[Rfam]
RNA sequence: GGUGGUUCUUGGGUGAUGUACCCCAGAACCAGAGAGGAGGGAGCCUGAUUCUGAGGUGCGUCACCUGAGAACUGCC
Numbered sequence: 001g002g003u004g005g006u007u008c009u010u011g012g013g014u015g016a017u018g019u020a021c022c023c024c025a026g027a028a029c030c031a032g033a034g035a036g037g038a039g040g041g042a043g044c045c046u047g048a049u050u051c052u053g054a055g056g057u058g059c060g061u062c063a064c065c066u067g068a069g070a071a072c073u074g075c076c
Base pairs, nucleotide, nucleotide: 002075003074005072006071007070008069009068010067011066012065013064014063015062016061017060019058020057021056022055025052026051027050028049030047031046032045